[Rfam]
RNA: Group II catalytic intron D1-D4-2
Organism: Desulfosarcina widdelii
RNA sequence: GAGGCAGGCACCUCGGAGCAGGUUUCAAACCUCCUUAAGCUGCGCUGGUGAAAAGCCAGGGGGGGUGAGUAUUAAAGAAAAGGUCCCGUUUGAUGGGAUCAGGU
Number, nucleotide and partner (000 for none) at each position: 001g026002a025003g024004g023005c022006a000007g000008g019009c018010a000011c016012c000013u000014c000015g000016g011017a000018g009019c008020a000021g000022g005023u004024u003025u002026c001027a000028a000029a000030c000031c103032u000033c077034c000035u075036u074037a073038a072039g066040c065041u000042g000043c062044g000045c000046u058047g057048g056049u055050g000051a000052a000053a000054a000055g049056c048057c047058a046059g000060g000061g000062g043063g000064g000065g040066u039067g000068a000069g000070u000071a000072u038073u037074a036075a035076a000077g033078a000079a000080a000081a000082g100083g099084u098085c097086c096087c095088g000089u000090u000091u000092g000093a000094u000095g087096g086097g085098a084099u083100c082101a000102g000103g031104u000